[Rfam]
RNA sequence: UGAUACAAGGUUCAAAAGGUCGGAACUCGUUCCUGCCUGCAGGAUAAGAGCUCUGACUUGUUGACCCGCACACAUGAGGAAGUAGUGAUUUUCCUGGGAAAAUCAACGGAUUCCGAAUGUGUGUAGAAUUGCGAGAGUUGCAUAGCAACGGAGCAAUUUGUGUAUCA
Numbered sequence: 001u002g003a004u005a006c007a008a009g010g011u012u013c014a015a016a017a018g019g020u021c022g023g024a025a026c027u028c029g030u031u032c033c034u035g036c037c038u039g040c041a042g043g044a045u046a047a048g049a050g051c052u053c054u055g056a057c058u059u060g061u062u063g064a065c066c067c068g069c070a071c072a073c074a075u076g077a078g079g080a081a082g083u084a085g086u087g088a089u090u091u092u093c094c095u096g097g098g099a100a101a102a103u104c105a106a107c108g109g110a111u112u113c114c115g116a117a118u119g120u121g122u123g124u125a126g127a128a129u130u131g132c133g134a135g136a137g138u139u140g141c142a143u144a145g146c147a148a149c150g151g152a153g154c155a156a157u158u159u160g161u162g163u164a165u166c167a
Stems, first nucleotide, its partner, number of pairs: 001167007010066001012064002017059008026050003030046001031044005068124008078114004085107002087104007126159007137149004

Shown here is a 167-nucleotide RNA from Roseburia sp. CAG:303, a member of the family "Clostridiales-1 RNA". It is annotated as a small RNA.